A member of the RNA family "Small nucleolar RNA Z266" from Cajanus cajan, 95 nucleotides long. NCBI's taxonomy places the organism under Eukaryota, Streptophyta, Streptophytina, Tracheophyta, Cajanus. By type it is a C/D-box small nucleolar RNA. It scores 58 bits against the family's covariance model.

[Rfam]
RNA sequence: GAAGACAUGGUUGAUAAAUCAAUUAGAUGUGUGAAAGUAGAAGUGCUUUCUGAUCUCAAAUUUUGUGGUAUAUUGUUAUAUCGGACUUUGUCUUC
Dot-bracket structure: (((((((.((((.......................................................................)))).)))))))